[Rfam]
RNA sequence: AGCUUUGCGCAGUGGCAGUAUUGUAGCCAAUGAGGUUUAUCCGAGGCACGAUAAUUGCUAAUUGAAAACCGAGUUGUUCAGUCUUGAAUAACACAAAUUAUGGGUCGCCCACGUGU
Numbered sequence: 001a002g003c004u005u006u007g008c009g010c011a012g013u014g015g016c017a018g019u020a021u022u023g024u025a026g027c028c029a030a031u032g033a034g035g036u037u038u039a040u041c042c043g044a045g046g047c048a049c050g051a052u053a054a055u056u057g058c059u060a061a062u063u064g065a066a067a068a069c070c071g072a073g074u075u076g077u078u079c080a081g082u083c084u085u086g087a088a089u090a091a092c093a094c095a096a097a098u099u100a101u102g103g104g105u106c107g108c109c110c111a112c113g114u115g116u
Base pairs, nucleotide, nucleotide: 020052021051022050023049024048026047027046028045034042035041071094073092074091075090076089077088078087079086080085111116
This 116-nucleotide RNA from Odocoileus virginianus belongs to the Rfam family "U4 spliceosomal RNA".
It scores 71 bits against the family's covariance model.
Rfam's curators write: U4 small nuclear RNA (U4 snRNA) is a component of the major U2-dependent spliceosome.